[Rfam]
Nucleotides: 117
Base pairs, nucleotide, nucleotide: 005038006037007036009034011032012031013030014029041073042072043071044070045069047067048066049065050064084112085111086110087109088108089107090106091105092104093103094102
Number, partner (000 for none) and nucleotide at each position: 001000u002000g003000u004000u005038c006037c007036a008000g009034g010000c011032g012031c013030c014029c015000a016000c017000g018000c019000u020000c021000c022000u023000c024000c025000c026000a027000u028000g029014g030013g031012g032011c033000a034009c035000c036007u037006g038005g039000c040000a041073g042072a043071a044070c045069a046000a047067c048066g049065g050064c051000g052000c053000u054000c055000c056000u057000c058000c059000u060000c061000c062000c063000a064050g065049c066048c067047g068000c069045u070044g071043u072042u073041c074000g075000a076000u077000u078000a079000u080000u081000c082000g083000a084112a085111a086110g087109c088108c089107u090106g091105c092104c093103g094102c095000u096000c097000c098000u099000c100000c101000c102094g103093c104092g105091g106090c107089a108088g109087g110086c111085u112084u113000u114000u115000c116000c117000a

Background
Rfam assigns this 117-nucleotide sequence from Rhizobium sp. Leaf306 to the family "Alphaproteobacterial ar14". Rfam's curators write: Smr14C2 was renamed NfeR1 (Nodule Formation Efficiency RNA) highly expressed in salt stress and during the symbiotic interaction on legume roots. NCBI's taxonomy places the organism under Bacteria, Pseudomonadota, Alphaproteobacteria, Rhizobiaceae, Rhizobium. Pairs were carried over by alignment from the consensus structure.